[Rfam]
RNA sequence: AUGAGUAUAAGUUAAUGGUUAAACUAAAUGUCUUCCACACAUUCCAUGUGAGUUCGAUUCUCACUACUCAUA
Dot-bracket structure: (((((((..((((........)))).(((((.......)))))....(((((.......)))))))))))).
RNA: tRNA